RNA sequence: GUGACAUCCGUAUGGGGCAGGACUUGUUUCAGUGGGGCUUUGGUACUCAGUGAGUCUGCUCCUUGAGUGUGUCACU
Numbered sequence: 001g002u003g004a005c006a007u008c009c010g011u012a013u014g015g016g017g018c019a020g021g022a023c024u025u026g027u028u029u030c031a032g033u034g035g036g037g038c039u040u041u042g043g044u045a046c047u048c049a050g051u052g053a054g055u056c057u058g059c060u061c062c063u064u065g066a067g068u069g070u071g072u073c074a075c076u
Base pairs, nucleotide, nucleotide: 001075002074003073004072005071006070007069009067011065012064014062015061016060017059018058019057021056022055023054029053030052031051033049034048035047036046037044038043
RNA: mir-9229 microRNA precursor family
Organism: Myotis lucifugus